The record is a 68-nucleotide RNA from Microcebus murinus, which matches "Small nucleolar RNA SNORD77" in Rfam. A reference for the family is Tycowski et al. (2004), "Guide RNAs with 5' caps and novel box C/D snoRNA-like domains for modification of snRNAs in metazoa", Curr Biol. U77 belongs to the C/D family of snoRNAs. It is predicted to guide 2'O-ribose methylation of large 28S rRNA subunit at position A1521. The C/D snoRNAs U44, U47, U74, U75, U76, U78, U79, U80 and U81 share the same host gene as U77 (non-coding). It scores 72 bits against the family's covariance model. NCBI's taxonomy places the organism under Eukaryota, Eumetazoa, Euteleostomi, Dipnotetrapodomorpha, Microcebus.
RNA sequence: GUACUAUGGUGUCUGCAUAGCUCCACAGAUUGAAUCAUGAAGAGAUUUACCAUUUGUCUGAUGUAUCU
Numbered sequence: 001g002u003a004c005u006a007u008g009g010u011g012u013c014u015g016c017a018u019a020g021c022u023c024c025a026c027a028g029a030u031u032g033a034a035u036c037a038u039g040a041a042g043a044g045a046u047u048u049a050c051c052a053u054u055u056g057u058c059u060g061a062u063g064u065a066u067c068u
Base pairs, nucleotide, nucleotide: 001066002065003064004063006038007037008036009035010034013028014027015026043055044054045053046052